[Rfam]
This 260-nucleotide part of an RNA from Mycoplasma sp. belongs to the Rfam family "Bacterial large subunit ribosomal RNA". Pairs were carried over by alignment from the consensus structure, which is taken from published work. A search with the family's covariance model found it, with a score of 2826 bits.
RNA sequence: GGAAAAUUGAGAUGAUCUGUUCUUAGUACGAGAGGACCGGAAUGGACACACCGCUAGUGCUCUAGUUGUCACGCCAGUGGCACAGCUAGGUAGCUAUGUGUGGAAUAGAUAAGCGCUGAAAGCAUCUAAGCGCGAAACUAACAUCAAGAUGAGUUUUCCCACCAAUUUAUUGGAUAAGUUCCCUUGUAGACAACAAGGUUGAUAGGAUGGGUGUGUAAGUGCCGUGAGGCAUUGAGCUAACCAUUACUAAUAGAACGAGG
Dot-bracket structure: ((((((((..((((..(((((((...............))))))).(((((...(((....(((((((((((....))))))..)))))....))).)))))...(((....(((((...........)))))....))).))))......))))))))..(((......))).(..(((((((((.......)))))....((((((((..(.....(((((....)))))....)...))))).)))...)))).)..